[Rfam]
RNA: 23S methyl RNA motif
Organism: Furfurilactobacillus siliginis
RNA sequence: CAUUUGUUGGUUGAUAUCGAACAAUUUCGUUAGCAAUCUUCAGAUUCGGACUUCAUUAACGUAGCGUCUCGCUGUAUUUUAAUACCGAGGCGGCUACGUUUUUAU
Numbered sequence: 001c002a003u004u005u006g007u008u009g010g011u012u013g014a015u016a017u018c019g020a021a022c023a024a025u026u027u028c029g030u031u032a033g034c035a036a037u038c039u040u041c042a043g044a045u046u047c048g049g050a051c052u053u054c055a056u057u058a059a060c061g062u063a064g065c066g067u068c069u070c071g072c073u074g075u076a077u078u079u080u081a082a083u084a085c086c087g088a089g090g091c092g093g094c095u096a097c098g099u100u101u102u103u104a105u
Base pairs, nucleotide, nucleotide: 002045003044004043005042006041009038010037011036012035013034015032016031018029019028058100059099060098061097062096063095064094065093066091067090068089069088070087071086074085075084076083